RNA sequence: CUCGGUCGAUGAUGACUCAAGUUUCUUAUGGUGACGGCUGGAUGAAUCCUGCGGAUAUGGGGCUGAGACUGAGC
Numbered sequence: 001c002u003c004g005g006u007c008g009a010u011g012a013u014g015a016c017u018c019a020a021g022u023u024u025c026u027u028a029u030g031g032u033g034a035c036g037g038c039u040g041g042a043u044g045a046a047u048c049c050u051g052c053g054g055a056u057a058u059g060g061g062g063c064u065g066a067g068a069c070u071g072a073g074c
Stems, first nucleotide, its partner, number of pairs: 001073005